Source information:
The family of this 87-nucleotide RNA sequence from Gossypium raimondii is "MIR7486 microRNA precursor family". Its family is annotated with miRNA-mediated post-transcriptional gene silencing and RISC complex in the Gene Ontology. It scores 69 bits against the family's covariance model.
RNA sequence: CACGUCAGCGCGUUUUGCUGACAUAGCAACAAAUCGCGUUUCAGAGGACGCGAUUUGUGUCCACGUCAGCAAAUCGCGCUGAAAUGG
Dot-bracket structure: ((..((((((((.((((((((..(.(..((((((((((.((....)).))))))))))..).)..)))))))).))))))))..)).